Background
The family of this 69-nucleotide RNA sequence from Alteribacillus iranensis is "Bacillaceae-1 RNA". Rfam classes the family as a small RNA.

RNA sequence: GGUAGUGGUUCUUCUGCUAAAUACGCGAACGGUCCUGUUCGCCACGCAGAAGUCAGCACGUCCUGUGCA
Numbered sequence: 001g002g003u004a005g006u007g008g009u010u011c012u013u014c015u016g017c018u019a020a021a022u023a024c025g026c027g028a029a030c031g032g033u034c035c036u037g038u039u040c041g042c043c044a045c046g047c048a049g050a051a052g053u054c055a056g057c058a059c060g061u062c063c064u065g066u067g068c069a
Stems, first nucleotide, its partner, number of pairs: 011052007026041005056068004
A search with the family's covariance model found it, with a score of 42 bits. Taxonomically the source falls in Alteribacillus (Bacteria, Bacillati, Caryophanales, Bacillaceae).